[Rfam]
RNA sequence: ACGGCCCUUGUUGGGGAGUAGCCUGUUCGUGACCCCGGUCACUGAGCGUUCGUAUCAACAUUCUCGGCAGCAUGCCGUGGUACGAACACCUUCUGGUUGGCGAGACCAACGAUGCAUCCAUGCCUAAAGUCGGGCGUGUGGUUGCGUCGUUGACUCAUAGCCCGACUGGAU
Number, nucleotide and partner (000 for none) at each position: 001a000002c000003g000004g000005c000006c000007c000008u000009u000010g000011u000012u000013g000014g000015g000016g000017a000018g000019u000020a000021g000022c000023c000024u000025g000026u046027u045028c044029g000030u000031g000032a000033c000034c000035c000036c000037g000038g000039u000040c000041a000042c000043u000044g028045a027046g026047c000048g087049u086050u085051c084052g083053u082054a081055u080056c079057a078058a000059c000060a000061u000062u000063c000064u000065c077066g076067g075068c074069a073070g000071c000072a000073u069074g068075c067076c066077g065078u057079g056080g055081u054082a053083c052084g051085a050086a049087c048088a000089c000090c000091u000092u000093c000094u000095g000096g000097u000098u000099g000100g000101c000102g000103a000104g000105a000106c000107c000108a000109a000110c000111g000112a000113u000114g000115c000116a000117u000118c000119c000120a000121u000122g000123c000124c000125u000126a000127a000128a000129g000130u000131c000132g000133g000134g000135c000136g000137u000138g000139u000140g000141g000142u000143u000144g000145c000146g000147u000148c000149g000150u000151u000152g000153a000154c000155u000156c000157a000158u000159a000160g000161c000162c000163c000164g000165a000166c000167u000168g000169g000170a000171u000